[Rfam]
RNA sequence: GAAGCAAGCCAGACCGCCGCUGGGGCAAGCGUGGAAACACGGCCCUGGAGGAAGGUCCGGACUGCAUAGAGCGGCGUAGCAGCUAACGGCUGCCCGGCGAAAGCCGAGGAUCAGAGCAACAGAGACGAGUCGAAGUGAGCCUAGGCCCACUUCGGGUGAAACGGGCAAUCUCUACGCGCAGCAACACCAAGUAGGCCAGCGUUGAUGCGGCUCGCAGAGCUGGCGGGUAGGUGGCACCGAGCCGGGCAGUGAUGUCCGGCCCAGAGGAAUGGCGGUCACGGGGCCGGUCUCGCAAGAGGCCGGACCUGCACAGAAUCCGGCCUAUCGGCUUGCUUCACUC
Numbered sequence: 001g002a003a004g005c006a007a008g009c010c011a012g013a014c015c016g017c018c019g020c021u022g023g024g025g026c027a028a029g030c031g032u033g034g035a036a037a038c039a040c041g042g043c044c045c046u047g048g049a050g051g052a053a054g055g056u057c058c059g060g061a062c063u064g065c066a067u068a069g070a071g072c073g074g075c076g077u078a079g080c081a082g083c084u085a086a087c088g089g090c091u092g093c094c095c096g097g098c099g100a101a102a103g104c105c106g107a108g109g110a111u112c113a114g115a116g117c118a119a120c121a122g123a124g125a126c127g128a129g130u131c132g133a134a135g136u137g138a139g140c141c142u143a144g145g146c147c148c149a150c151u152u153c154g155g156g157u158g159a160a161a162c163g164g165g166c167a168a169u170c171u172c173u174a175c176g177c178g179c180a181g182c183a184a185c186a187c188c189a190a191g192u193a194g195g196c197c198a199g200c201g202u203u204g205a206u207g208c209g210g211c212u213c214g215c216a217g218a219g220c221u222g223g224c225g226g227g228u229a230g231g232u233g234g235c236a237c238c239g240a241g242c243c244g245g246g247c248a249g250u251g252a253u254g255u256c257c258g259g260c261c262c263a264g265a266g267g268a269a270u271g272g273c274g275g276u277c278a279c280g281g282g283g284c285c286g287g288u289c290u291c292g293c294a295a296g297a298g299g300c301c302g303g304a305c306c307u308g309c310a311c312a313g314a315a316u317c318c319g320g321c322c323u324a325u326c327g328g329c330u331u332g333c334u335u336c337a338c339u340c
Stems, first nucleotide, its partner, number of pairs: 001336010011325001012277007020048007053323003057320005062181004069213004074177005079093005094108001095106004109172002114170002116166002130155008139146002185233004195224006206216003241260008
Dot-bracket structure: ((((((((((((((((((.(((((((...............)))))))....[[[.[[[[[((((...[[[[.((((((((((.....)))))(((((....)))).)((...((((............((((((((.((....)).)))))))).........))..)))))))))))))...((((......((((((.....(((.]]]])))..)))))).....)))).......((((((((....))))))))..........)))))))......................................]]]]]]]].).))))))))))....

A member of the RNA family "Bacterial RNase P class A" from Roseateles asaccharophilus, 340 nucleotides long. Pairs were carried over by alignment from the consensus structure, which is taken from published work. The family's RNA type in Rfam is ribozyme. Ribonuclease P (RNase P) is a ubiquitous endoribonuclease, found in archaea, bacteria and eukarya as well as chloroplasts and mitochondria. Its best characterised activity is the generation of mature 5'-ends of tRNAs by cleaving the 5'-leader elements of precursor-tRNAs. Taxonomically the source falls in Roseateles (Bacteria, Pseudomonadota, Betaproteobacteria, Sphaerotilaceae).